[Rfam]
RNA sequence: CGAGCCGGGCGGACGGUCGCGUCGGUGGGUCUCCCACCGCCGAGGAAGGUCCGGGCUCCGAAGGGCAGGAUGGUGGCCAACAGCCACCCGGGGCGACCCGCGGGACAGUGCCACAGAGAACAGACCGCCGUCGGUGCGCGAGCACCGGCGGCAAGGGUGAAACGGUGGUGUAAGAGACCACCAGCGGCCUGGGUGACCAGGUCGGCUCGGUAAACCCCAUCCGGAGCAAGCCCAGACAGCGUGCGACCAAGGGCGGCCCGCCCGAGCACGCGGGUAGGGCGCUGGAGGCGGUCGGCAACGGCCGCCCGAGAUGGAUGACCGUCACCGGUCCGUCGGCGACGACGGUCCGGGACAGAACCCGGCCUACAGCCCGGCUCGUCCC
Numbered sequence: 001c002g003a004g005c006c007g008g009g010c011g012g013a014c015g016g017u018c019g020c021g022u023c024g025g026u027g028g029g030u031c032u033c034c035c036a037c038c039g040c041c042g043a044g045g046a047a048g049g050u051c052c053g054g055g056c057u058c059c060g061a062a063g064g065g066c067a068g069g070a071u072g073g074u075g076g077c078c079a080a081c082a083g084c085c086a087c088c089c090g091g092g093g094c095g096a097c098c099c100g101c102g103g104g105a106c107a108g109u110g111c112c113a114c115a116g117a118g119a120a121c122a123g124a125c126c127g128c129c130g131u132c133g134g135u136g137c138g139c140g141a142g143c144a145c146c147g148g149c150g151g152c153a154a155g156g157g158u159g160a161a162a163c164g165g166u167g168g169u170g171u172a173a174g175a176g177a178c179c180a181c182c183a184g185c186g187g188c189c190u191g192g193g194u195g196a197c198c199a200g201g202u203c204g205g206c207u208c209g210g211u212a213a214a215c216c217c218c219a220u221c222c223g224g225a226g227c228a229a230g231c232c233c234a235g236a237c238a239g240c241g242u243g244c245g246a247c248c249a250a251g252g253g254c255g256g257c258c259c260g261c262c263c264g265a266g267c268a269c270g271c272g273g274g275u276a277g278g279g280c281g282c283u284g285g286a287g288g289c290g291g292u293c294g295g296c297a298a299c300g301g302c303c304g305c306c307c308g309a310g311a312u313g314g315a316u317g318a319c320c321g322u323c324a325c326c327g328g329u330c331c332g333u334c335g336g337c338g339a340c341g342a343c344g345g346u347c348c349g350g351g352a353c354a355g356a357a358c359c360c361g362g363c364c365u366a367c368a369g370c371c372c373g374g375c376u377c378g379u380c381c382c
Stems, first nucleotide, its partner, number of pairs: 001378010011367001012323007020042002023039006047365003051362005056226004063259004068222005073087005088102001089100004103217002108215002110211003125156002127152011164182006184206001185204008230280004239271006251263004287306008
Bacterial RNase P class A: a 382-nucleotide RNA sequence from Phycicoccus flavus. The family's RNA type in Rfam is ribozyme. Clan: RNaseP clan. It scores 283 bits against the family's covariance model.